Rfam assigns this 52-nucleotide sequence from Neogemmobacter tilapiae to the family "ffh sRNA". A search with the family's covariance model found it, with a score of 65 bits. The family's RNA type in Rfam is small RNA.
RNA sequence: UUAUGCCGGGAUCGCCAUCCGUCAGCGCGUUGCGCCCACGGGUGCGUUUCGG
Numbered sequence: 001u002u003a004u005g006c007c008g009g010g011a012u013c014g015c016c017a018u019c020c021g022u023c024a025g026c027g028c029g030u031u032g033c034g035c036c037c038a039c040g041g042g043u044g045c046g047u048u049u050c051g052g
Stems, first nucleotide, its partner, number of pairs: 016044007025035004
The family's consensus secondary structure is taken from published work. The source organism's lineage runs through Bacteria, Pseudomonadati, Pseudomonadota, Alphaproteobacteria and Neogemmobacter.